[Rfam]
RNA sequence: CUCUUAUCAAGAGAGGUGGAGGGAAUAGGCCCGGUGAAACCUCGGCAACCUUCAGUUUUUAUCUGAAACGGUGCUAAAUCCUACUCGUUGGGAUAUCCCAACGAGAAAGAUGAGAG
Numbered sequence: 001c002u003c004u005u006a007u008c009a010a011g012a013g014a015g016g017u018g019g020a021g022g023g024a025a026u027a028g029g030c031c032c033g034g035u036g037a038a039a040c041c042u043c044g045g046c047a048a049c050c051u052u053c054a055g056u057u058u059u060u061a062u063c064u065g066a067a068a069c070g071g072u073g074c075u076a077a078a079u080c081c082u083a084c085u086c087g088u089u090g091g092g093a094u095a096u097c098c099c100a101a102c103g104a105g106a107a108a109g110a111u112g113a114g115a116g
Stems, first nucleotide, its partner, number of pairs: 001116008013043005021032003026083004044075004049071002051067004079108001084105008
RNA: SAM riboswitch aptamer (S box leader)
Organism: Cerasibacillus quisquiliarum